[Rfam]
RNA sequence: CGGUUAAAACGUGCGUAGUCGGCUAGUUGUGUGAAUAGUGAUUCGGGAUGGUUUGCGGAGUAAUCUGUGGAUUGUGCUAUAAUUGCUAUUUGUGAAUAUGCAACAGCCUGGGUUAAAUAUGCACUUUCAUGGUGCUUUUAAUUUCAGGAACUUAUAGCUUGAGACAGGGACGGGGUAAUUUUAUUUGGUAGCGAGAGGUGACAAUCGAUGACCUACCAAGGAGGACCGGAGGCGAAAGCGAUUACCAAGAACUGAUCUGACGAUCAAGCACGUGAGCAGGAGUAUCGAAGAGGAUUAGAGACCCACGUAGUUCCUUGCAGUCAACGAUGCCAACGUAGUGGUGAUUUUGGUCAUUGCUAGAGCGAAAGCUAGUGUAUGGGCUCCGGGGAUAGUACGGACGCAAGUUUGAAACUUGAAGAAAU
Numbered sequence: 001c002g003g004u005u006a007a008a009a010c011g012u013g014c015g016u017a018g019u020c021g022g023c024u025a026g027u028u029g030u031g032u033g034a035a036u037a038g039u040g041a042u043u044c045g046g047g048a049u050g051g052u053u054u055g056c057g058g059a060g061u062a063a064u065c066u067g068u069g070g071a072u073u074g075u076g077c078u079a080u081a082a083u084u085g086c087u088a089u090u091u092g093u094g095a096a097u098a099u100g101c102a103a104c105a106g107c108c109u110g111g112g113u114u115a116a117a118u119a120u121g122c123a124c125u126u127u128c129a130u131g132g133u134g135c136u137u138u139u140a141a142u143u144u145c146a147g148g149a150a151c152u153u154a155u156a157g158c159u160u161g162a163g164a165c166a167g168g169g170a171c172g173g174g175g176u177a178a179u180u181u182u183a184u185u186u187g188g189u190a191g192c193g194a195g196a197g198g199u200g201a202c203a204a205u206c207g208a209u210g211a212c213c214u215a216c217c218a219a220g221g222a223g224g225a226c227c228g229g230a231g232g233c234g235a236a237a238g239c240g241a242u243u244a245c246c247a248a249g250a251a252c253u254g255a256u257c258u259g260a261c262g263a264u265c266a267a268g269c270a271c272g273u274g275a276g277c278a279g280g281a282g283u284a285u286c287g288a289a290g291a292g293g294a295u296u297a298g299a300g301a302c303c304c305a306c307g308u309a310g311u312u313c314c315u316u317g318c319a320g321u322c323a324a325c326g327a328u329g330c331c332a333a334c335g336u337a338g339u340g341g342u343g344a345u346u347u348u349g350g351u352c353a354u355u356g357c358u359a360g361a362g363c364g365a366a367a368g369c370u371a372g373u374g375u376a377u378g379g380g381c382u383c384c385g386g387g388g389a390u391a392g393u394a395c396g397g398a399c400g401c402a403a404g405u406u407u408g409a410a411a412c413u414u415g416a417a418g419a420a421a422u
Base pairs, nucleotide, nucleotide: 001385002384003383011271012270013269014268018264019263020262162258163257164256165254166253167252174246175245176244177243178242179241180224181223184220185219186218187217188216189215190214191213195206196205232239233238276318277317278315279314280313281312286310290306292304293303329381330380331379333373334372336359337358338357339356340355341354342353343352344351345350362369363368387414388413396407397406398405399404

Background: This 422-nucleotide part of an RNA from Edhazardia aedis belongs to the Rfam family "Microsporidia small subunit ribosomal RNA". For this family Rfam cites "Crystal structure of the ribosome at 5.5 A resolution" (Yusupov et al., Science, 2001). Rfam 15.1 lists 1,035 matches to the family in 436 species. Its Rfam clan is "SSU clan". It is one of the family's seed sequences.